The record is a 143-nucleotide sequence from Ktedonosporobacter rubrisoli, which matches "FMN riboswitch aptamer (RFN element)" in Rfam. It scores 98 bits against the family's covariance model. The base pairs follow the family's consensus structure, which is taken from published work.
RNA sequence: AUAUGUCUUCGGGGCAGGGUGAGGAAGCUUGUAUAGCUUCCAAUUCCCGAUCGGCGGUAAAGCCCGCGACCUGCUGUUCAGACAGCGGUAGAUCUGGGGAAGUUCCAGAGCCGACGGUAUAGUCCGGAUGGGAGAAGGCAGUA
Numbered sequence: 001a002u003a004u005g006u007c008u009u010c011g012g013g014g015c016a017g018g019g020u021g022a023g024g025a026a027g028c029u030u031g032u033a034u035a036g037c038u039u040c041c042a043a044u045u046c047c048c049g050a051u052c053g054g055c056g057g058u059a060a061a062g063c064c065c066g067c068g069a070c071c072u073g074c075u076g077u078u079c080a081g082a083c084a085g086c087g088g089u090a091g092a093u094c095u096g097g098g099g100a101a102g103u104u105c106c107a108g109a110g111c112c113g114a115c116g117g118u119a120u121a122g123u124c125c126g127g128a129u130g131g132g133a134g135a136a137g138g139c140a141g142u143a
Base pairs, nucleotide, nucleotide: 004140005139006138007137008136009135010134017048018047019046050123051122052113053112054067055066056065057064062111063110071088072087093109094108095107096106097105115126116125117124